Overview: This 188-nucleotide RNA sequence from Modestobacter sp. DSM 44400 belongs to the Rfam family "c-di-AMP riboswitch aptamer (ydaO/yuaA leader)". Lineage of the source: Bacteria > Bacillati > Actinomycetes > Geodermatophilaceae > Modestobacter. Pairs were carried over by alignment from the consensus structure.
[Rfam]
RNA sequence: GAUCGGGCACCGCCGAACCAGCCGGCCACACAGCCGUCUGGACCGGGGACCCACCGCAGUCCUGGGUGAGUUCUCGCGCGUCCCGCACGCCGGGUCGCACGCGUCGACGACGGCGCGCAGAGAUAGGGCCGUCUCCUUCCGGCCCGAACCCGUCAGCUAACUCGGUAGGCGGUCGAUGUGGAGGAAAU
Number, nucleotide and partner (000 for none) at each position: 001g000002a000003u000004c000005g000006g000007g000008c000009a000010c000011c171012g170013c169014c168015g000016a000017a000018c041019c040020a039021g000022c000023c000024g000025g000026c000027c000028a000029c000030a000031c000032a000033g000034c000035c000036g000037u000038c000039u020040g019041g018042a166043c165044c164045g163046g162047g161048g000049a000050c000051c000052c000053a000054c000055c000056g000057c000058a000059g000060u000061c000062c000063u000064g151065g150066g149067u000068g000069a000070g000071u000072u123073c122074u121075c120076g000077c000078g000079c000080g000081u000082c000083c000084c000085g000086c000087a000088c000089g000090c000091c000092g000093g000094g000095u000096c000097g000098c000099a000100c000101g000102c000103g000104u000105c000106g000107a000108c000109g000110a000111c000112g000113g000114c000115g000116c000117g000118c000119a000120g075121a074122g073123a072124u000125a000126g145127g144128g143129c142130c000131g000132u000133c000134u000135c000136c000137u000138u000139c000140c000141g000142g129143c128144c127145c126146g000147a000148a000149c066150c065151c064152g000153u000154c000155a000156g000157c000158u000159a000160a000161c047162u046163c045164g044165g043166u042167a000168g014169g013170c012171g011172g000173u000174c000175g000176a000177u000178g000179u000180g000181g000182a000183g000184g000185a000186a000187a000188u000